[Rfam]
RNA sequence: GGGAAUUGAUGGGUGCUGGUGUGCCCUGCGGUCUUCAAAACCGUCUCAGGUAGUUAGGAGCUGCCCGGGUAGGUUCGAUUCCUACCAUUUCCC
Numbered sequence: 001g002g003g004a005a006u007u008g009a010u011g012g013g014u015g016c017u018g019g020u021g022u023g024c025c026c027u028g029c030g031g032u033c034u035u036c037a038a039a040a041c042c043g044u045c046u047c048a049g050g051u052a053g054u055u056a057g058g059a060g061c062u063g064c065c066c067g068g069g070u071a072g073g074u075u076c077g078a079u080u081c082c083u084a085c086c087a088u089u090u091c092c093c
Base pairs, nucleotide, nucleotide: 001093002092003091004090005089007087008085011026012025013024014023015022016021028044029043030042031041032040047067049065050064051063070084071083072082073081
Background: Selenocysteine transfer RNA: a 93-nucleotide RNA sequence from Finegoldia magna. The sequence is in the family's curated seed alignment. Its Rfam clan is "tRNA clan". Rfam links the family to the GO term triplet codon-amino acid adaptor activity.